This 76-nucleotide RNA sequence from Macaca fascicularis belongs to the Rfam family "mir-320 microRNA precursor family". The source organism's lineage runs through Eukaryota, Metazoa, Bilateria, Cercopithecinae and Macaca. Gene Ontology terms of the family: positive regulation of stem cell proliferation, negative regulation of gene expression and RISC complex. On this family, see Berezikov et al., Genome Res 2006: "Many novel mammalian microRNA candidates identified by extensive cloning and RAKE analysis". The base pairs follow the family's consensus structure, which was predicted with RNAalifold. A search with the family's covariance model found it, with a score of 58 bits.

[Rfam]
RNA sequence: UAAGGGCGAUAGCUUCUCUUCCGGGUUCCUCCUGGAGCUGGGAGAAGCUGGCUUGAGAGGGUUAAAAAGAAAAAAA
Numbered sequence: 001u002a003a004g005g006g007c008g009a010u011a012g013c014u015u016c017u018c019u020u021c022c023g024g025g026u027u028c029c030u031c032c033u034g035g036a037g038c039u040g041g042g043a044g045a046a047g048c049u050g051g052c053u054u055g056a057g058a059g060g061g062u063u064a065a066a067a068a069g070a071a072a073a074a075a076a
Base pairs, nucleotide, nucleotide: 014059015058016057017056018055022051024049025048029044030043031042032041033040034039